[Rfam]
The family of this 102-nucleotide RNA from Bacillus sp. V3-13 is "Purine riboswitch aptamer". The base pairs follow the family's consensus structure, which is taken from published work.

RNA sequence: ACUAAUUCAAUACGUUUCACUCAUAUAAUCGCGGGGAUAUGGCCCGCAAGUCUCUACCGGAAUACCGUAAAUGUUCCGACUAUGGGUGAGCAAUGGGACGGA
Numbered sequence: 001a002c003u004a005a006u007u008c009a010a011u012a013c014g015u016u017u018c019a020c021u022c023a024u025a026u027a028a029u030c031g032c033g034g035g036g037a038u039a040u041g042g043c044c045c046g047c048a049a050g051u052c053u054c055u056a057c058c059g060g061a062a063u064a065c066c067g068u069a070a071a072u073g074u075u076c077c078g079a080c081u082a083u084g085g086g087u088g089a090g091c092a093a094u095g096g097g098a099c100g101g102a
Stems, first nucleotide, its partner, number of pairs: 018088008029049001031047005058078007